[Rfam]
RNA: Lysine riboswitch aptamer
Organism: Floricoccus tropicus
RNA sequence: AUAGAGUAUAGAGGUUGCAUCUUUUAUUAACCCCAUUGAGUUUCGUGGAACAUUGACGUGGGACUAGGAAAAGAUGCCGAAAAAUUUAGUAUCCACUUGUACUAGGUUUUGGGUCGUAUGUAAAUAGCAUUCGAACUGUCUUUGUUAUAGUUUUCUAUAAUAAAGUUGAGCUUUACUUAAA
Numbered sequence: 001a002u003a004g005a006g007u008a009u010a011g012a013g014g015u016u017g018c019a020u021c022u023u024u025u026a027u028u029a030a031c032c033c034c035a036u037u038g039a040g041u042u043u044c045g046u047g048g049a050a051c052a053u054u055g056a057c058g059u060g061g062g063a064c065u066a067g068g069a070a071a072a073g074a075u076g077c078c079g080a081a082a083a084a085u086u087u088a089g090u091a092u093c094c095a096c097u098u099g100u101a102c103u104a105g106g107u108u109u110u111g112g113g114u115c116g117u118a119u120g121u122a123a124a125u126a127g128c129a130u131u132c133g134a135a136c137u138g139u140c141u142u143u144g145u146u147a148u149a150g151u152u153u154u155c156u157a158u159a160a161u162a163a164a165g166u167u168g169a170g171c172u173u174u175a176c177u178u179a180a181a
Base pairs, nucleotide, nucleotide: 006176007175008174010172011171017077018076019075020074021073022072023071024070025069032062033061034060035059036058081110082109083108084107085106086105087104088103089102090101091100092099111137112136114134115133116132118130119129120128121127140165141164142163143162144161145160146159147158148157
Dot-bracket structure: .....(((.((.....(((((((((......(((((.....................)))))......)))))))))...((((((((((((......))))))))))))((.(((.((((.....)))).))).))..(((((((((........))))))))).....)).))).....